[Rfam]
RNA: BsrG
RNA sequence: ACAGAUUGUCGAGGAGCGGUUAGCCACACCCUUUUUAGAAAGGGGGGUGGUAUGAUGACAAUGUUUGAGGCAAUGUAUCUCAUGAUUGCAUUUGCAACACUCGUUGUUUUGAUCAUAAAAAAGGAAUAACCGCCCUCUUGCUAAGGUUUGCGGUUAUUCCUUAAUAACUAAGAAUCUGGGCUAACCGUUUCCGGUUAGGCAGUCUGUGGGGGCUGGCGUGCUUGCAACACGUCAG
Numbered sequence: 001a002c003a004g005a006u007u008g009u010c011g012a013g014g015a016g017c018g019g020u021u022a023g024c025c026a027c028a029c030c031c032u033u034u035u036u037a038g039a040a041a042g043g044g045g046g047g048u049g050g051u052a053u054g055a056u057g058a059c060a061a062u063g064u065u066u067g068a069g070g071c072a073a074u075g076u077a078u079c080u081c082a083u084g085a086u087u088g089c090a091u092u093u094g095c096a097a098c099a100c101u102c103g104u105u106g107u108u109u110u111g112a113u114c115a116u117a118a119a120a121a122a123g124g125a126a127u128a129a130c131c132g133c134c135c136u137c138u139u140g141c142u143a144a145g146g147u148u149u150g151c152g153g154u155u156a157u158u159c160c161u162u163a164a165u166a167a168c169u170a171a172g173a174a175u176c177u178g179g180g181c182u183a184a185c186c187g188u189u190u191c192c193g194g195u196u197a198g199g200c201a202g203u204c205u206g207u208g209g210g211g212g213c214u215g216g217c218g219u220g221c222u223u224g225c226a227a228c229a230c231g232u233c234a235g
Stems, first nucleotide, its partner, number of pairs: 001207004006183001008181003013136002016133001018131004025049003029045005057108007071084002094100001146168003184195004213235008222226001